RNA sequence: CGAACCCGCGCGGGAGAGUCCGGACGGCCCACCGGCCGCACCGGCGCCGAAGGAGCAAAUCCUCCCCGGAACCUCUCAGGCAAACGGACCGCGUGGGUGAG
Dot-bracket structure: .....((((((((......((((.................)))).(((((..(((....(.......)....))))).))).......)))))))).....
Rfam assigns this 101-nucleotide RNA from Actinokineospora spheciospongiae to the family "Glycine riboswitch aptamer". It scores 65 bits against the family's covariance model.